The record is an 86-nucleotide RNA from Marmota monax, which matches "Small nucleolar RNA SNORD127" in Rfam. The match comes from Rfam's covariance-model search (104 bits). Its family is annotated with nucleolus and RNA processing in the Gene Ontology. Rfam classes the family as a C/D-box small nucleolar RNA. Pairs were carried over by alignment from the consensus structure, which was predicted with WAR.
RNA sequence: UGGCAACUAUGAUGAAACAUUUGGUCUGCAUGUAAUAUAUUUUGUUACAAGAUGAGGACAAUAGUCCCUCUAAACUGAUGUUGCCA
Numbered sequence: 001u002g003g004c005a006a007c008u009a010u011g012a013u014g015a016a017a018c019a020u021u022u023g024g025u026c027u028g029c030a031u032g033u034a035a036u037a038u039a040u041u042u043u044g045u046u047a048c049a050a051g052a053u054g055a056g057g058a059c060a061a062u063a064g065u066c067c068c069u070c071u072a073a074a075c076u077g078a079u080g081u082u083g084c085c086a
Stems, first nucleotide, its partner, number of pairs: 001086007